[Rfam]
RNA sequence: UCGGGCUUAAACACAGCCGCCCGGCGUCGCACCUCGACAAGACGGGUCGUCCAAGCGCUGA
Number, nucleotide and partner (000 for none) at each position: 001u024002c023003g022004g021005g020006c019007u000008u000009a000010a000011a000012c000013a000014c060015a059016g058017c057018c000019g006020c005021c004022c003023g002024g001025c000026g000027u000028c000029g000030c000031a000032c000033c000034u000035c000036g000037a000038c000039a000040a000041g051042a050043c049044g048045g000046g000047u000048c044049g043050u042051c041052c000053a000054a000055g000056c000057g017058c016059u015060g014061a000
RNA: chrB-b RNA